[Rfam]
Overview:
The record is a 69-nucleotide RNA sequence from Laticauda laticaudata, which matches "Mammalian CPEB3 ribozyme" in Rfam. It scores 44 bits against the family's covariance model.
RNA sequence: UGAAGAUAUAUAGAAGGAGCGUUCACGUUGCGGUCCCUGUCAGGUAUCUGUUUACCUGCGAAUCCUUCU
Numbered sequence: 001u002g003a004a005g006a007u008a009u010a011u012a013g014a015a016g017g018a019g020c021g022u023u024c025a026c027g028u029u030g031c032g033g034u035c036c037c038u039g040u041c042a043g044g045u046a047u048c049u050g051u052u053u054a055c056c057u058g059c060g061a062a063u064c065c066u067u068c069u
Stems, first nucleotide, its partner, number of pairs: 005036001009032001012069007019031003041058006